Notes:
sok antitoxin (CssrC): a 150-nucleotide RNA sequence from Candidatus Regiella insecticola. Also identified in Shigella as CssrC. The match comes from Rfam's covariance-model search (108 bits). The family's RNA type in Rfam is antitoxin RNA. Its family is annotated with mRNA binding in the Gene Ontology.
RNA sequence: GGGUGCUUGAGGCUUUUUGCUUUGAGCAGUCGUGAUAGGCAGAAAGACGAAAGCCCCGAGUAAUUUUCUUAAUUAACCCGAGGCUCCAAUAUGUCCACAGAACAUAAGGAUAGCCUCUUAACUGCAGAAAUGCAAUCGGAGGUCAGAAUG
Numbered sequence: 001g002g003g004u005g006c007u008u009g010a011g012g013c014u015u016u017u018u019g020c021u022u023u024g025a026g027c028a029g030u031c032g033u034g035a036u037a038g039g040c041a042g043a044a045a046g047a048c049g050a051a052a053g054c055c056c057c058g059a060g061u062a063a064u065u066u067u068c069u070u071a072a073u074u075a076a077c078c079c080g081a082g083g084c085u086c087c088a089a090u091a092u093g094u095c096c097a098c099a100g101a102a103c104a105u106a107a108g109g110a111u112a113g114c115c116u117c118u119u120a121a122c123u124g125c126a127g128a129a130a131u132g133c134a135a136u137c138g139g140a141g142g143u144c145a146g147a148a149u150g
Base pairs, nucleotide, nucleotide: 001057002056003055005054006053007052008051011048013046014045015044016043017042018041019040020039021038022037026033027032058079060077061076062074063073064072065071080117081116082115083114084113087109090106091105092104093103122141123140125138